A member of the RNA family "Manganese Mn2+ riboswitch aptamer (yybP-ykoY)" from Acinetobacter guillouiae, 158 nucleotides long.
RNA sequence: CUGUACUUCAUUGGGGAGUAGCCGCUGUUUGUCAUCUGCGAGAUGAUAAAUGGGUGAUGAUCAACAUAAUUACUCAACAGAGUAUGGUCAUCAUAGCAAAGAACCAAUUUAGCUGAAGGUGUUUACUCAGCUAUCUUUUGUUGGCAAGACCUUUGAUU
Numbered sequence: 001c002u003g004u005a006c007u008u009c010a011u012u013g014g015g016g017a018g019u020a021g022c023c024g025c026u027g028u029u030u031g032u033c034a035u036c037u038g039c040g041a042g043a044u045g046a047u048a049a050a051u052g053g054g055u056g057a058u059g060a061u062c063a064a065c066a067u068a069a070u071u072a073c074u075c076a077a078c079a080g081a082g083u084a085u086g087g088u089c090a091u092c093a094u095a096g097c098a099a100a101g102a103a104c105c106a107a108u109u110u111a112g113c114u115g116a117a118g119g120u121g122u123u124u125a126c127u128c129a130g131c132u133a134u135c136u137u138u139u140g141u142u143g144g145c146a147a148g149a150c151c152u153u154u155g156a157u158u
Stems, first nucleotide, its partner, number of pairs: 026052007054094010071084005095157001097155005
Background
About the family: This RNA was originally discovered in E. coli during a large scale screen and was named SraF. The family was later found to exist upstream of related families of protein genes in many bacteria, including the the yybP and ykoK genes in B. subtilis. It scores 51 bits against the family's covariance model.